[Rfam]
RNA sequence: GGUUGUUGUGAUGAUUGGCCAAUGUUCAACUGCUCUGACGGGAGUGAGUGAGAACAGCCUUUCUGAACGAACC
Numbered sequence: 001g002g003u004u005g006u007u008g009u010g011a012u013g014a015u016u017g018g019c020c021a022a023u024g025u026u027c028a029a030c031u032g033c034u035c036u037g038a039c040g041g042g043a044g045u046g047a048g049u050g051a052g053a054a055c056a057g058c059c060u061u062u063c064u065g066a067a068c069g070a071a072c073c
Stems, first nucleotide, its partner, number of pairs: 002072003005068002
This 73-nucleotide RNA from Upupa epops belongs to the Rfam family "Small nucleolar RNA Z40". Pairs were carried over by alignment from the consensus structure, which was predicted with PFOLD. NCBI's taxonomy places the organism under Eukaryota, Gnathostomata, Dipnotetrapodomorpha, Coraciimorphae, Upupa. For this family Rfam cites "The high diversity of snoRNAs in plants: identification and comparative study of 120 snoRNA genes from Oryza sativa" (Chen et al., Nucleic Acids Res, 2003). Its family is annotated with RNA processing and nucleolus in the Gene Ontology.